[Rfam]
RNA: Fluoride riboswitch aptamer (crcB RNA motif)
RNA sequence: AUGUUUAGAGGAAAUGAGGUACUUCCUUGGGAAACCUAAAUGCAAAUAUGCUGAUGACUUCUACUUUUGU
Numbered sequence: 001a002u003g004u005u006u007a008g009a010g011g012a013a014a015u016g017a018g019g020u021a022c023u024u025c026c027u028u029g030g031g032a033a034a035c036c037u038a039a040a041u042g043c044a045a046a047u048a049u050g051c052u053g054a055u056g057a058c059u060u061c062u063a064c065u066u067u068u069g070u
Stems, first nucleotide, its partner, number of pairs: 010026004016061005042051003